The record is a 66-nucleotide RNA from Sitophilus oryzae, which matches "mir-29 microRNA precursor family" in Rfam.
Rfam links the family to the GO terms gene silencing by miRNA and RISC complex.
On this family, see Ambros, Cell 2001: "microRNAs: tiny regulators with great potential".
The family's consensus secondary structure was predicted with PFOLD.
The organism belongs to Sitophilus, within Eukaryota.
From the family's description: This family represents the microRNA (miRNA) precursors mir-29.

[Rfam]
RNA sequence: UGAUUACUGUUUUCUUAUGGUGUUGAGAGUGCUUAUGGUUCUAGCACCAUUCGAAAUCAGUGCUUG
Numbered sequence: 001u002g003a004u005u006a007c008u009g010u011u012u013u014c015u016u017a018u019g020g021u022g023u024u025g026a027g028a029g030u031g032c033u034u035a036u037g038g039u040u041c042u043a044g045c046a047c048c049a050u051u052c053g054a055a056a057u058c059a060g061u062g063c064u065u066g
Stems, first nucleotide, its partner, number of pairs: 001066003007060003011056004017050006026042003